[Rfam]
RNA sequence: CCUUCAUUGAUGAGCAAAACUCAUGACUUUCGUUCUUCUGAGAUUGCUGAAGCAACUCUUCUUCUGAGAAGG
Numbered sequence: 001c002c003u004u005c006a007u008u009g010a011u012g013a014g015c016a017a018a019a020c021u022c023a024u025g026a027c028u029u030u031c032g033u034u035c036u037u038c039u040g041a042g043a044u045u046g047c048u049g050a051a052g053c054a055a056c057u058c059u060u061c062u063u064c065u066g067a068g069a070a071g072g
Stems, first nucleotide, its partner, number of pairs: 001072003005068001